[Rfam]
RNA sequence: GAAUAUUUUAUUCAUAUAGAACACUCAUUUCGAUAAAAUGAUUCGAAUCACUU
Numbered sequence: 001g002a003a004u005a006u007u008u009u010a011u012u013c014a015u016a017u018a019g020a021a022c023a024c025u026c027a028u029u030u031c032g033a034u035a036a037a038a039u040g041a042u043u044c045g046a047a048u049c050a051c052u053u
Stems, first nucleotide, its partner, number of pairs: 011033002014030001016028002
The family of this 53-nucleotide sequence from Olea europaea is "Plastid-atpF group II-D1 intron".
The base pairs follow the family's consensus structure, which was predicted with LocARNA.
A search with the family's covariance model found it, with a score of 53 bits.
From the family's description: Plastid atpF is a non-coding RNA (ncRNA) recognised in plastids.